Notes:
Na+ riboswitch aptamer (DUF1646): a 56-nucleotide RNA. Pairs were carried over by alignment from the consensus structure, which is taken from published work. The literature on the family includes a 2022 paper in Nat Chem Biol by White et al., "Na(+) riboswitches regulate genes for diverse physiological processes in bacteria".
[Rfam]
RNA sequence: GGUUGGACAGGCGAAAGUCUGUUUUCAAGAAAAAUAUGUUUCCUGGGUGGGAAGCU
Numbered sequence: 001g002g003u004u005g006g007a008c009a010g011g012c013g014a015a016a017g018u019c020u021g022u023u024u025u026c027a028a029g030a031a032a033a034a035u036a037u038g039u040u041u042c043c044u045g046g047g048u049g050g051g052a053a054g055c056u
Base pairs, nucleotide, nucleotide: 003028004027005026006023007022008021009020010019011018038055039054040053041052042051043050